[Rfam]
Nucleotides: 134
Base pairs, nucleotide, nucleotide: 002066003065004064005063006062007061008060011058012057013056014055019046020045021044022043023042024041025040026039074124075123076122077121078120080118081117082116088112089111090110092108093107094106095105096104
Number, partner (000 for none) and nucleotide at each position: 001000a002066c003065u004064c005063u006062c007061u008060c009000a010000g011058c012057u013056c014055u015000g016000c017000a018000u019046g020045g021044u022043c023042a024041u025040g026039c027000u028000u029000g030000c031000u032000g033000u034000c035000a036000c037000a038000c039026g040025c041024g042023u043022g044021g045020c046019u047000u048000u049000c050000g051000u052000a053000a054000a055014g056013g057012g058011g059000a060008g061007a062006g063005a064004g065003a066002g067000a068000a069000a070000g071000g072000a073000u074124c075123u076122c077121u078120u079000c080118c081117g082116g083000a084000c085000c086000u087000c088112a089111g090110g091000g092108u093107g094106g095105c096104c097000u098000u099000a100000c101000u102000g103000u104096g105095g106094c107093c108092a109000c110090u111089c112088u113000u114000u115000c116082c117081u118080g119000g120078a121077g122076g123075g124074g125000u126000g127000c128000c129000a130000c131000a132000g133000g134000u